[Rfam]
RNA: Small nucleolar RNA SNORA69
Organism: Buceros rhinoceros
RNA sequence: AAAGCAGGCUGCAAUUGCAGUGCUUCAUUCCGUGGGAGUACUGCCAUUUCCCUGCUGAGAGCAACCCUGUUAAUGCUGGCUUCGGUUUCACCUACACGGUGGUGAAACCAUUUGUUGUUGACAUGGACAAGU
Numbered sequence: 001a002a003a004g005c006a007g008g009c010u011g012c013a014a015u016u017g018c019a020g021u022g023c024u025u026c027a028u029u030c031c032g033u034g035g036g037a038g039u040a041c042u043g044c045c046a047u048u049u050c051c052c053u054g055c056u057g058a059g060a061g062c063a064a065c066c067c068u069g070u071u072a073a074u075g076c077u078g079g080c081u082u083c084g085g086u087u088u089c090a091c092c093u094a095c096a097c098g099g100u101g102g103u104g105a106a107a108c109c110a111u112u113u114g115u116u117g118u119u120g121a122c123a124u125g126g127a128c129a130a131g132u
Base pairs, nucleotide, nucleotide: 003056004055005054006053007052008051018043019042020041021040022039023038024037025036026035065126066125068123069122070121071120072119073118074117075116084109085108086107087106088105089104090103091102092101